[Rfam]
RNA sequence: AAUCAGCCCCCUAUGCAUUGGAUCUUUGGCAGUUUUGGCCCCUAAUGCCACUUUUGACUUAGUCUUCGCUGAGGUGCCACGUGUCGACCAUUGUGGGUGCCACGUCAGGGAAGACUAAGUCAAAAGUGGUUUUGGGGGCCAAAACUGCCAAAGAUCCAAUACAUACAGGGCUGUUU
Number, nucleotide and partner (000 for none) at each position: 001a176002a175003u000004c173005a172006g171007c170008c169009c000010c000011c000012u165013a164014u163015g162016c000017a160018u159019u158020g157021g156022a155023u154024c153025u152026u151027u150028g149029g148030c147031a146032g145033u144034u143035u142036u141037g140038g139039c138040c137041c136042c135043u134044a133045a132046u000047g000048c000049c000050a000051c000052u000053u000054u000055u000056g000057a000058c000059u000060u000061a000062g000063u000064c000065u000066u000067c000068g000069c000070u000071g000072a105073g000074g000075u102076g101077c000078c099079a098080c097081g000082u000083g000084u000085c000086g000087a000088c000089c000090a000091u000092u000093g000094u000095g000096g000097g080098u079099g078100c000101c076102a075103c000104g000105u072106c000107a000108g000109g000110g000111a000112a000113g000114a000115c000116u000117a000118a000119g000120u000121c000122a000123a000124a000125a000126g000127u000128g000129g000130u000131u000132u045133u044134g043135g042136g041137g040138g039139c038140c037141a036142a035143a034144a033145c032146u031147g030148c029149c028150a027151a026152a025153g024154a023155u022156c021157c020158a019159a018160u017161a000162c015163a014164u013165a012166c000167a000168g000169g008170g007171c006172u005173g004174u000175u002176u001